RNA: Ribosomal S15 leader
Organism: Psychrosphaera haliotis
RNA sequence: UGUAGCGGCUGAGUUAGUGAUUGGCUGCUACCACAUCAUAUUUUAUUUUGGAGAGACUUAUGUCACUAAGCGUUGAAGAUAAAGCUAAAAUCCUAGCGGAUUUCGGUGCAAACGAA
Numbered sequence: 001u002g003u004a005g006c007g008g009c010u011g012a013g014u015u016a017g018u019g020a021u022u023g024g025c026u027g028c029u030a031c032c033a034c035a036u037c038a039u040a041u042u043u044u045a046u047u048u049u050g051g052a053g054a055g056a057c058u059u060a061u062g063u064c065a066c067u068a069a070g071c072g073u074u075g076a077a078g079a080u081a082a083a084g085c086u087a088a089a090a091u092c093c094u095a096g097c098g099g100a101u102u103u104c105g106g107u108g109c110a111a112a113c114g115a116a
Base pairs, nucleotide, nucleotide: 007026008025009024010023011022012021047070048069049068050067051066053064